[Rfam]
RNA: Small nucleolar RNA Z188
RNA sequence: GCGUGCCAGUGAUGAUUCACGCAAUUGGUGAAUUCUGGAUGAAUGUCCUGCUGCACAGGCAUGGUGAUAUCCACUUCCAAAGCGUUCAUCUGAGGCACUC
Numbered sequence: 001g002c003g004u005g006c007c008a009g010u011g012a013u014g015a016u017u018c019a020c021g022c023a024a025u026u027g028g029u030g031a032a033u034u035c036u037g038g039a040u041g042a043a044u045g046u047c048c049u050g051c052u053g054c055a056c057a058g059g060c061a062u063g064g065u066g067a068u069a070u071c072c073a074c075u076u077c078c079a080a081a082g083c084g085u086u087c088a089u090c091u092g093a094g095g096c097a098c099u100c
Base pairs, nucleotide, nucleotide: 003098004097005096006095007094
Dot-bracket structure: ..(((((......................................................................................)))))..